The family of this 53-nucleotide RNA is "Streptococcus sRNA SpF59 (ldcC RNA)".
RNA sequence: UGACCACUCUAUUUUUAGGGUUAAGGCCAUACGGACAGCGGGUCAACUGCCGA
Numbered sequence: 001u002g003a004c005c006a007c008u009c010u011a012u013u014u015u016u017a018g019g020g021u022u023a024a025g026g027c028c029a030u031a032c033g034g035a036c037a038g039c040g041g042g043u044c045a046a047c048u049g050c051c052g053a
Stems, first nucleotide, its partner, number of pairs: 001045005006021006
Dot-bracket structure: (((((((((((....))))))...................)))))........

About this RNA:
A reference for the family is Mann et al. (2012), "Control of virulence by small RNAs in Streptococcus pneumoniae", PLoS Pathog. It is annotated as a small RNA.